[Rfam]
Nucleotides: 281
Base pairs, nucleotide, nucleotide: 005025008022009021010020011019012018013017066224067223068222069221071219076111077110078109079108080107081106086102087101088100089099090098112171113170118165125159127157129155130154131153175260177259178258179257180256181255227246228245229244230243231242232241266279267278268277269276270275
Number, partner (000 for none) and nucleotide at each position: 001000g002000g003000g004000a005025u006000c007000a008022u009021u010020u011019a012018g013017a014000a015000u016000a017013u018012u019011u020010g021009a022008a023000c024000u025005a026000a027000a028000a029000u030000a031000u032000a033000a034000g035000u036000c037000c038000a039000c040000u041000u042000u043000a044000u045000a046000a047000u048000a049000a050000c051000c052000u053000u054000a055000u056000a057000a058000a059000g060000a061000u062000a063000a064000a065000a066224u067223u068222g069221g070000g071219u072000a073000a074000a075000u076111u077110g078109c079108a080107a081106g082000a083000a084000u085000c086102u087101c088100u089099u090098a091000a092000c093000u094000a095000a096000u097000u098090u099089a100088a101087g102086a103000u104000a105000a106081u107080u108079u109078g110077c111076a112171g113170c114000g115000a116000a117000g118165u119000c120000u121000a122000a123000u124000u125159u126000a127157a128000c129155a130154u131153a132000u133000u134000g135000u136000a137000u138000a139000a140000g141000a142000u143000a144000a145000g146000u147000u148000u149000a150000u151000a152000u153131u154130a155129u156000a157127u158000a159125a160000a161000a162000u163000u164000a165118g166000a167000a168000a169000c170113g171112u172000u173000c174000a175260a176000c177259g178258a179257c180256u181255a182000g183000a184000a185000a186000a187000u188000g189000a190000g191000u192000a193000g194000u195000g196000u197000u198000a199000a200000c201000a202000a203000u204000a205000a206000u207000u208000u209000u210000u211000c212000c213000a214000a215000g216000a217000a218000a219071a220000c221069c222068c223067a224066a225000c226000a227246a228245u229244a230243a231242a232241u233000a234000a235000u236000a237000a238000u239000a240000a241232a242231u243230u244229u245228a246227u247000u248000g249000a250000u251000g252000a253000c254000a255181u256180a257179g258178u259177c260175u261000a262000a263000a264000c265000u266279u267278a268277c269276u270275a271000g272000a273000a274000a275270u276269a277268g278267u279266a280000a281000g
Group I catalytic intron: a 281-nucleotide RNA sequence from Rhizopogon vesiculosus. A reference for the family is Cech (1990), "Self-splicing of group I introns", Annu Rev Biochem. About the family: Group I catalytic introns are large self-splicing ribozymes. They catalyse their own excision from mRNA, tRNA and rRNA precursors in a wide range of organisms. The core secondary structure consists of 9 paired regions (P1-P9). These fold to essentially two domains - the P4-P6 domain (formed from the stacking of P5, P4, P6 and P6a helices) and the P3-P9 domain (formed from the P8, P3, P7 and P9 helices). A search with the family's covariance model found it, with a score of 56 bits. Its family is annotated with Group I intron splicing in the Gene Ontology.